[Rfam]
RNA sequence: UGAGAUUUGAGAGGGGCUGCUCCUAGUACGAGAGGACCGGAGUGGACGAACCUCUGGUGUUCCGGUUGUCACGCCAGUGGCAUUGCCGGGUAGCUAUGUUCGGAAAAGAUAACCGCUGAAAGCAUCUAAGCGGGAAACUUGCCUCAAGAUGAGAUCUCACUGGGAACUUGAUUCCCCUGAAGGGCCGUCGAAGACUACGACGUUGAUAGGCUGGGUGUGUAAGCGUUGUGAGGCGUUGAGCUAACCAGUACUAAUUGCCCGUGAG
Numbered sequence: 001u002g003a004g005a006u007u008u009g010a011g012a013g014g015g016g017c018u019g020c021u022c023c024u025a026g027u028a029c030g031a032g033a034g035g036a037c038c039g040g041a042g043u044g045g046a047c048g049a050a051c052c053u054c055u056g057g058u059g060u061u062c063c064g065g066u067u068g069u070c071a072c073g074c075c076a077g078u079g080g081c082a083u084u085g086c087c088g089g090g091u092a093g094c095u096a097u098g099u100u101c102g103g104a105a106a107a108g109a110u111a112a113c114c115g116c117u118g119a120a121a122g123c124a125u126c127u128a129a130g131c132g133g134g135a136a137a138c139u140u141g142c143c144u145c146a147a148g149a150u151g152a153g154a155u156c157u158c159a160c161u162g163g164g165a166a167c168u169u170g171a172u173u174c175c176c177c178u179g180a181a182g183g184g185c186c187g188u189c190g191a192a193g194a195c196u197a198c199g200a201c202g203u204u205g206a207u208a209g210g211c212u213g214g215g216u217g218u219g220u221a222a223g224c225g226u227u228g229u230g231a232g233g234c235g236u237u238g239a240g241c242u243a244a245c246c247a248g249u250a251c252u253a254a255u256u257g258c259c260c261g262u263g264a265g
Stems, first nucleotide, its partner, number of pairs: 001159008011145004017045007047102005055096003062089005067082006106140003113133005162177003179262001182260004186202005207253003210249005217241001223236005
Shown here is a 265-nucleotide part of an RNA from Pseudomonas aeruginosa, a member of the family "Bacterial large subunit ribosomal RNA". Rfam 15.1 lists 51,934 matches to the family in 10,816 species. Rfam's curators put it in the seed alignment. Gene Ontology terms of the family: ribosome and structural constituent of ribosome.